[Rfam]
Nucleotides: 046
Base pairs, nucleotide, nucleotide: 007041008040010038011037012036014034015033016032017031
Number, partner (000 for none) and nucleotide at each position: 001000a002000a003000g004000a005000g006000c007041u008040u009000c010038g011037a012036g013000c014034c015033a016032a017031u018000a019000a020000a021000g022000a023000c024000u025000a026000a027000g028000g029000g030000g031017a032016u033015u034014g035000a036012c037011u038010c039000a040008a041007a042000a043000u044000u045000g046000a